RNA sequence: AAUAACAAUGAUGAGCUCUACAGACCUGUAAUGAUUUGCGAAUAUGAUCGCAGUUCUAUUUUUGAACAUCUAAGGGACUGAGUUGUU
Numbered sequence: 001a002a003u004a005a006c007a008a009u010g011a012u013g014a015g016c017u018c019u020a021c022a023g024a025c026c027u028g029u030a031a032u033g034a035u036u037u038g039c040g041a042a043u044a045u046g047a048u049c050g051c052a053g054u055u056c057u058a059u060u061u062u063u064g065a066a067c068a069u070c071u072a073a074g075g076g077a078c079u080g081a082g083u084u085g086u087u
Base pairs, nucleotide, nucleotide: 002086003085004084005083006082
The family of this 87-nucleotide sequence from Coffea arabica is "Small nucleolar RNA SNORD25". A reference for the family is Qu et al. (2001), "Identification of 10 novel snoRNA gene clusters from Arabidopsis thaliana", Nucleic Acids Res. The family's consensus secondary structure was predicted with PFOLD. A search with the family's covariance model found it, with a score of 63 bits. It is annotated as a C/D-box small nucleolar RNA. The family has 12 seed sequences and 985 matches in Rfam 15.1.